[Rfam]
Record summary
This 296-nucleotide RNA from Nakamurella panacisegetis belongs to the Rfam family "5' ureB small RNA".
RNA sequence: CCUCGUGGAUCUGCGACGGGGAGAGCAGGUGCACGUGCGAGUCGAAGCCGCCGGCGGUGAGGAUCUUGCCCUCGCCGGAGAUGACGUCGGUCGAUGGCCCGAUGUGCAGAUCCGGGUGCACUCCGUCGGCCACAUCCGGGUUGCCGGAACGGCCGAGGGCCACGAUGCGGCCGUCGCGGACCCCGACAUCGGCCCGGACGACGCCCCAGUGGUCGAGCACGAUGGCGUUGGUGAUGACGGUGUCGACGGCGCCCUGGGCCCGGGUCGUGCUGCCCUGGGCCAUCGACUCCCGGAUG
Numbered sequence: 001c002c003u004c005g006u007g008g009a010u011c012u013g014c015g016a017c018g019g020g021g022a023g024a025g026c027a028g029g030u031g032c033a034c035g036u037g038c039g040a041g042u043c044g045a046a047g048c049c050g051c052c053g054g055c056g057g058u059g060a061g062g063a064u065c066u067u068g069c070c071c072u073c074g075c076c077g078g079a080g081a082u083g084a085c086g087u088c089g090g091u092c093g094a095u096g097g098c099c100c101g102a103u104g105u106g107c108a109g110a111u112c113c114g115g116g117u118g119c120a121c122u123c124c125g126u127c128g129g130c131c132a133c134a135u136c137c138g139g140g141u142u143g144c145c146g147g148a149a150c151g152g153c154c155g156a157g158g159g160c161c162a163c164g165a166u167g168c169g170g171c172c173g174u175c176g177c178g179g180a181c182c183c184c185g186a187c188a189u190c191g192g193c194c195c196g197g198a199c200g201a202c203g204c205c206c207c208a209g210u211g212g213u214c215g216a217g218c219a220c221g222a223u224g225g226c227g228u229u230g231g232u233g234a235u236g237a238c239g240g241u242g243u244c245g246a247c248g249g250c251g252c253c254c255u256g257g258g259c260c261c262g263g264g265u266c267g268u269g270c271u272g273c274c275c276u277g278g279g280c281c282a283u284c285g286a287c288u289c290c291c292g293g294a295u296g
Stems, first nucleotide, its partner, number of pairs: 001296001003294001007290003012164002015161001017159001018076002021073003030053002034050002037048002057069003077154002082149001085146001090144002096142005101136003104131001107129001109127003114122001171278003176273004180268002183264002192226003206215001230260002236254001240252003
It scores 51 bits against the family's covariance model.